[Rfam]
RNA sequence: GCGUAACAUUCGCCACGAUUUAGCAAUAUGAGGACAUACACUUUGGACAGUCACAGUCGAUACCGAUUUAAGUUUUUUGCCUAACUAUUACCUCAUUUCUCCUAUUAUCGGUGAUAGUUAUC
Numbered sequence: 001g002c003g004u005a006a007c008a009u010u011c012g013c014c015a016c017g018a019u020u021u022a023g024c025a026a027u028a029u030g031a032g033g034a035c036a037u038a039c040a041c042u043u044u045g046g047a048c049a050g051u052c053a054c055a056g057u058c059g060a061u062a063c064c065g066a067u068u069u070a071a072g073u074u075u076u077u078u079g080c081c082u083a084a085c086u087a088u089u090a091c092c093u094c095a096u097u098u099c100u101c102c103u104a105u106u107a108u109c110g111g112u113g114a115u116a117g118u119u120a121u122c
Stems, first nucleotide, its partner, number of pairs: 001013003005010001026082001030077006043066004050061003083119010
This 122-nucleotide RNA sequence from Volucribacter psittacicida belongs to the Rfam family "Aggregatibacter sRNA 54". The match comes from Rfam's covariance-model search (93 bits). For this family Rfam cites "Small RNA repertoires and their intraspecies variation in Aggregatibacter actinomycetemcomitans" (Oogai et al., DNA Res, 2017). By type it is a small RNA. The family's consensus secondary structure was predicted with RNAfold.